About this RNA
tRNA: a 73-nucleotide RNA from Kluyveromyces lactis. The family's RNA type in Rfam is transfer RNA. The sequence is in the family's curated seed alignment. Transfer RNA (tRNA) molecules are approximately 80 nucleotides in length. The family's consensus secondary structure is taken from published work.
RNA sequence: GGAAAUGUUGUUUAAAGGUUAAACUGUUAGAUUGCAAAUCUACACAUUUAGAGUUCGAUUCUCUUCAUUUCUU
Number, nucleotide and partner (000 for none) at each position: 001g072002g071003a070004a069005a068006u067007g066008u000009u000010g025011u000012u023013u022014a000015a000016a000017g000018g000019u000020u000021a000022a013023a012024c000025u010026g000027u000028u042029a041030g040031a039032u000033u000034g000035c000036a000037a000038a000039u031040c030041u029042a028043c000044a000045c000046a000047u000048u000049u000050a064051g063052a062053g061054u000055u000056c000057g000058a000059u000060u000061c053062u052063c051064u050065u000066c007067a006068u005069u004070u003071c002072u001073u000